Description
SAM (S-adenosyl methionine) riboswitch aptamer: a 113-nucleotide RNA from Xylanimonas protaetiae. On this family, see Weinberg et al., RNA 2008: "The aptamer core of SAM-IV riboswitches mimics the ligand-binding site of SAM-I riboswitches". Rfam 15.1 lists 2,360 matches to the family in 1,305 species.

RNA sequence: GGUCAUGAGUUCCGACGCCAAGCCCCGGCUCGUCGGACGGCAACCCCCCGCGCGGGUGGGUGCCCCGGGUGAAGACCAGGUCCGCCGCACCAGCGGCGGACAACGCGCGAACC
Numbered sequence: 001g002g003u004c005a006u007g008a009g010u011u012c013c014g015a016c017g018c019c020a021a022g023c024c025c026c027g028g029c030u031c032g033u034c035g036g037a038c039g040g041c042a043a044c045c046c047c048c049c050g051c052g053c054g055g056g057u058g059g060g061u062g063c064c065c066c067g068g069g070u071g072a073a074g075a076c077c078a079g080g081u082c083c084g085c086c087g088c089a090c091c092a093g094c095g096g097c098g099g100a101c102a103a104c105g106c107g108c109g110a111a112c113c
Base pairs, nucleotide, nucleotide: 001077002076003075004074009038011037012036013035014034015033016032021030022029039064040063041062044060045059046058048055049054080101081100082099083098084097085096086095087094088093
The base pairs follow the family's consensus structure, which is taken from published work.